[Rfam]
RNA sequence: CGGGCAGUCUUUGGGGAGUAGCUCGUCCCGCGCUUCGGCGCCAGGGGGGCACGCAUCAACAAACUUGGACCUCCGCGGUCCAUGGUGUGUGCGGCAGCCAUGCAUUCAUUCAUUCAUGCAGGGCGGCU
Numbered sequence: 001c002g003g004g005c006a007g008u009c010u011u012u013g014g015g016g017a018g019u020a021g022c023u024c025g026u027c028c029c030g031c032g033c034u035u036c037g038g039c040g041c042c043a044g045g046g047g048g049g050c051a052c053g054c055a056u057c058a059a060c061a062a063a064c065u066u067g068g069a070c071c072u073c074c075g076c077g078g079u080c081c082a083u084g085g086u087g088u089g090u091g092c093g094g095c096a097g098c099c100a101u102g103c104a105u106u107c108a109u110u111c112a113u114u115c116a117u118g119c120a121g122g123g124c125g126g127c128u
Stems, first nucleotide, its partner, number of pairs: 026047003049092010066082005

This 128-nucleotide sequence from Acidovorax sp. Leaf160 belongs to the Rfam family "Manganese Mn2+ riboswitch aptamer (yybP-ykoY)". The base pairs follow the family's consensus structure. Lineage of the source: Bacteria > Pseudomonadati > Pseudomonadota > Comamonadaceae > Acidovorax. About the family: This RNA was originally discovered in E. coli during a large scale screen and was named SraF. The family was later found to exist upstream of related families of protein genes in many bacteria, including the the yybP and ykoK genes in B. subtilis. The specific functions of these proteins are unknown, but this structured RNA element may be involved in their genetic regulation as a riboswitch.